Shown here is a 105-nucleotide RNA from Staphylococcus sp. HMSC071G07, a member of the family "TPP riboswitch aptamer (THI element)". Gene Ontology term of the family: thiamine pyrophosphate binding. Pairs were carried over by alignment from the consensus structure, which is taken from published work. The organism belongs to Staphylococcus, within Bacteria.
Nucleotides: 105
Base pairs, nucleotide, nucleotide: 007092008091009090010089011055012054013053014052016049017029018028019027020026021025036048037047038046039045040044061086062085063084064083067080068079069078070077
Number, partner (000 for none) and nucleotide at each position: 001000c002000u003000a004000a005000c006000g007092c008091a009090c010089u011055a012054g013053g014052g015000g016049u017029g018028u019027u020026a021025u022000g023000u024000u025021a026020u027019a028018a029017c030000u031000g032000a033000g034000a035000u036048g037047a038046g039045g040044u041000a042000g043000a044040a045039c046038c047037u048036c049016a050000a051000a052014c053013c054012c055011u056000u057000u058000g059000a060000a061086c062085c063084u064083g065000a066000u067080c068079u069078a070077g071000a072000u073000g074000a075000u076000a077070c078069u079068a080067g081000c082000g083064u084063a085062g086061g087000a088000a089010a090009g091008u092007g093000a094000g095000c096000g097000a098000u099000u100000a101000c102000u103000a104000u105000u